[Rfam]
RNA sequence: GUUGGGAUCCCCCUGUCACCCCAGAAACAGAGAUGUAUUCUGAGCCCGACGGAUUGCUUGAGCCCAGGAAUUCUGGGCUGCAGUGCGCUGUGCUGAGCAGGCAUCCAAGCUAAGGCUGCCACCAAUAUGGUGACCCGCGGGGAGCUGCGGGACACCAGGUUGACUAAGGAGGGGUGAACCGGCCCAGGUCGGACAUGAAGCAGGUCAAAUCUUCUGUGGUGGUCAGUAGCAGGAUUGCACCUGUGAACAGCCCCUGCAGCAUAGCCUGAGCAACACAGAGACACGCGGGCUCCC
Numbered sequence: 001g002u003u004g005g006g007a008u009c010c011c012c013c014u015g016u017c018a019c020c021c022c023a024g025a026a027a028c029a030g031a032g033a034u035g036u037a038u039u040c041u042g043a044g045c046c047c048g049a050c051g052g053a054u055u056g057c058u059u060g061a062g063c064c065c066a067g068g069a070a071u072u073c074u075g076g077g078c079u080g081c082a083g084u085g086c087g088c089u090g091u092g093c094u095g096a097g098c099a100g101g102c103a104u105c106c107a108a109g110c111u112a113a114g115g116c117u118g119c120c121a122c123c124a125a126u127a128u129g130g131u132g133a134c135c136c137g138c139g140g141g142g143a144g145c146u147g148c149g150g151g152a153c154a155c156c157a158g159g160u161u162g163a164c165u166a167a168g169g170a171g172g173g174g175u176g177a178a179c180c181g182g183c184c185c186a187g188g189u190c191g192g193a194c195a196u197g198a199a200g201c202a203g204g205u206c207a208a209a210u211c212u213u214c215u216g217u218g219g220u221g222g223u224c225a226g227u228a229g230c231a232g233g234a235u236u237g238c239a240c241c242u243g244u245g246a247a248c249a250g251c252c253c254c255u256g257c258a259g260c261a262u263a264g265c266c267u268g269a270g271c272a273a274c275a276c277a278g279a280g281a282c283a284c285g286c287g288g289g290c291u292c293c294c
Stems, first nucleotide, its partner, number of pairs: 001008002020032001042292007054281002057278002062271002065268004073264003077260007085252001087251005093245001097244005104237001105233002109230004114224009123162004128157005134151007164168001170215005181206004189198003
The family of this 294-nucleotide RNA sequence from Furnarius figulus is "Metazoan signal recognition particle RNA". The match comes from Rfam's covariance-model search (178 bits). Pairs were carried over by alignment from the consensus structure, which is taken from published work. The literature on the family includes a 2002 paper in Curr Opin Struct Biol by Wild et al., "Towards the structure of the mammalian signal recognition particle". The family's RNA type in Rfam is non-coding RNA gene. The signal recognition particle (SRP) is a universally conserved ribonucleoprotein. It is involved in the co-translational targeting of proteins to membranes. Gene Ontology terms of the family: SRP-dependent cotranslational protein targeting to membrane, signal sequence recognition and signal recognition particle, endoplasmic reticulum targeting. The organism belongs to Furnarius, within Eukaryota.